[Rfam]
RNA sequence: UGCAACUUGUCGGAGUGCCGAAAGGCUGAGACCGUUGACUACAAAUGUAGUCGUAGUACGGGAUCCGUAUAACCUGAUCAGGAUAAUGCCUGCGCAGGGAACAAGGGGAAACCACCA
Numbered sequence: 001u002g003c004a005a006c007u008u009g010u011c012g013g014a015g016u017g018c019c020g021a022a023a024g025g026c027u028g029a030g031a032c033c034g035u036u037g038a039c040u041a042c043a044a045a046u047g048u049a050g051u052c053g054u055a056g057u058a059c060g061g062g063a064u065c066c067g068u069a070u071a072a073c074c075u076g077a078u079c080a081g082g083a084u085a086a087u088g089c090c091u092g093c094g095c096a097g098g099g100a101a102c103a104a105g106g107g108g109a110a111a112c113c114a115c116c117a
Base pairs, nucleotide, nucleotide: 006105007104008103009102010101011067012066013065014064016061017026018025019024033060034059035058073098074097075096076095079092080091081090082089
RNA: TPP riboswitch aptamer (THI element)